azaaromatic riboswitch aptamer (yjdF RNA): a 125-nucleotide sequence from Paenibacillus sp. HGF7. A search with the family's covariance model found it, with a score of 71 bits. The base pairs follow the family's consensus structure, which is taken from published work.
[Rfam]
RNA sequence: AAAGUGGAGCGUAAAAUCACAGUCCGGUUGGUAGUCCGGAUGCAUGCUGCAGAUUUAAGCCUGAUUAAAUCUGUUAACAUGUCGUAGCCUUCCCCCUCGGGAUGUCCGGCGCUCUGUUUACUUAA
Dot-bracket structure: ...((((((((..........((((((........))))))(((((...............................)))))........((((....)))).......))))))))........